[Rfam]
RNA: Small nucleolar RNA Z278
RNA sequence: UCCUAUGAUGAGUUGCCCAUUGUGUGAGAUGUAGGUAGCUCCAAGUCCCUGGUUUCCAGGGAGAACCUACUUGGGGUCCUGUAUUGUAAUGAGAUGUGUGGGCUUCUACUGAGGU
Numbered sequence: 001u002c003c004u005a006u007g008a009u010g011a012g013u014u015g016c017c018c019a020u021u022g023u024g025u026g027a028g029a030u031g032u033a034g035g036u037a038g039c040u041c042c043a044a045g046u047c048c049c050u051g052g053u054u055u056c057c058a059g060g061g062a063g064a065a066c067c068u069a070c071u072u073g074g075g076g077u078c079c080u081g082u083a084u085u086g087u088a089a090u091g092a093g094a095u096g097u098g099u100g101g102g103c104u105u106c107u108a109c110u111g112a113g114g115u
Base pairs, nucleotide, nucleotide: 002114003113047061048060049059050058051057